This 108-nucleotide RNA sequence from Arthrobacter sp. NIO-1057 belongs to the Rfam family "Glycine riboswitch aptamer". The source organism's lineage runs through Bacteria, Actinomycetota, Micrococcales, Micrococcaceae and Arthrobacter. A search with the family's covariance model found it, with a score of 42 bits.

RNA sequence: CAACUCUGGAAAGCAGUGCAGAAUAUUCUGCGCUCACCGAAGGAGCAAGUUUGGCCCAGUAGUCGGGUCCAAGCGAAAACUCUCAGGUCACUAUACAGAUUGGGGAGG
Numbered sequence: 001c002a003a004c005u006c007u008g009g010a011a012a013g014c015a016g017u018g019c020a021g022a023a024u025a026u027u028c029u030g031c032g033c034u035c036a037c038c039g040a041a042g043g044a045g046c047a048a049g050u051u052u053g054g055c056c057c058a059g060u061a062g063u064c065g066g067g068u069c070c071a072a073g074c075g076a077a078a079a080c081u082c083u084c085a086g087g088u089c090a091c092u093a094u095a096c097a098g099a100u101u102g103g104g105g106a107g108g
Stems, first nucleotide, its partner, number of pairs: 001103001003101001005099004015034004036088003039084002043082003049074006